Shown here is a 57-nucleotide RNA, a member of the family "eL15-Euryarchaeota ribosomal protein leader". Rfam's curators put it in the seed alignment. For this family Rfam cites "Discovery of 20 novel ribosomal leader candidates in bacteria and archaea" (Eckert and Weinberg, BMC Microbiol, 2020).
RNA sequence: CCUGUUCCAUACAGGUUGGGAUGUGAACUAUCGCCCCGCGAUGGUUUGAACCACGCA
Number, nucleotide and partner (000 for none) at each position: 001c015002c014003u013004g012005u011006u000007c000008c000009a000010u000011a005012c004013a003014g002015g001016u000017u053018g052019g051020g000021a000022u000023g000024u000025g047026a046027a045028c044029u043030a042031u041032c040033g039034c000035c000036c000037c000038g000039c033040g032041a031042u030043g029044g028045u027046u026047u025048g000049a000050a000051c019052c018053a017054c000055g000056c000057a000